[Rfam]
RNA sequence: UCACAACCGUUGGGGUGCCCUGUCACAGGGGCUGAGAGGCGCAAGCCAACCCAUCGAACCUGAUCCGGGUCAUACCGGCGUAGGGAACGGUGACGAACAGAUG
Numbered sequence: 001u002c003a004c005a006a007c008c009g010u011u012g013g014g015g016u017g018c019c020c021u022g023u024c025a026c027a028g029g030g031g032c033u034g035a036g037a038g039g040c041g042c043a044a045g046c047c048a049a050c051c052c053a054u055c056g057a058a059c060c061u062g063a064u065c066c067g068g069g070u071c072a073u074a075c076c077g078g079c080g081u082a083g084g085g086a087a088c089g090g091u092g093a094c095g096a097a098c099a100g101a102u103g
Stems, first nucleotide, its partner, number of pairs: 006091005011053004017032005039046002059084004065078004
Shown here is a 103-nucleotide sequence from Roseinatronobacter bogoriensis, a member of the family "TPP riboswitch aptamer (THI element)". Lineage of the source: Bacteria > Pseudomonadota > Rhodobacterales > Paracoccaceae > Roseinatronobacter bogoriensis. The match comes from Rfam's covariance-model search (76 bits).